[Rfam]
RNA sequence: UGUACAAUAAGGCUUUUCGUGGGUGGUGGCUCACUCCCUGACUUUUAUAGGGAAGGGGGGUGAUGCUUCUGACGGUAUUCGAAUCACUCGUUCUAAUGAUUUCAUUUGGAACAUUGGUAGUGGCGAUAUUGUCCAAUCAAAAAAAAUAACCACCCUAUAAGCCUGACGAGCGAUUAGGGUGAUUAGAAUCCUUAAACGUGAGUCGCCCCCCAAGGAGGGCUAUUGUACAUGGCCGUUAGUGUAACCAGCACUAACG
Numbered sequence: 001u002g003u004a005c006a007a008u009a010a011g012g013c014u015u016u017u018c019g020u021g022g023g024u025g026g027u028g029g030c031u032c033a034c035u036c037c038c039u040g041a042c043u044u045u046u047a048u049a050g051g052g053a054a055g056g057g058g059g060g061u062g063a064u065g066c067u068u069c070u071g072a073c074g075g076u077a078u079u080c081g082a083a084u085c086a087c088u089c090g091u092u093c094u095a096a097u098g099a100u101u102u103c104a105u106u107u108g109g110a111a112c113a114u115u116g117g118u119a120g121u122g123g124c125g126a127u128a129u130u131g132u133c134c135a136a137u138c139a140a141a142a143a144a145a146a147u148a149a150c151c152a153c154c155c156u157a158u159a160a161g162c163c164u165g166a167c168g169a170g171c172g173a174u175u176a177g178g179g180u181g182a183u184u185a186g187a188a189u190c191c192u193u194a195a196a197c198g199u200g201a202g203u204c205g206c207c208c209c210c211c212a213a214g215g216a217g218g219g220c221u222a223u224u225g226u227a228c229a230u231g232g233c234c235g236u237u238a239g240u241g242u243a244a245c246c247a248g249c250a251c252u253a254a255c256g
Stems, first nucleotide, its partner, number of pairs: 001229005007223001009221001011204005016161002019158005025151003031063003035060005071133007084099003109124001172190003205220004234256009
Rfam assigns this 256-nucleotide RNA sequence from Oceanobacillus halophilus to the family "BsrG". NCBI's taxonomy places the organism under Bacteria, Bacilli, Caryophanales, Bacillaceae, Oceanobacillus. bsrE, bsrG and bsrH pair through intermolecular interactions with antisense sRNAs.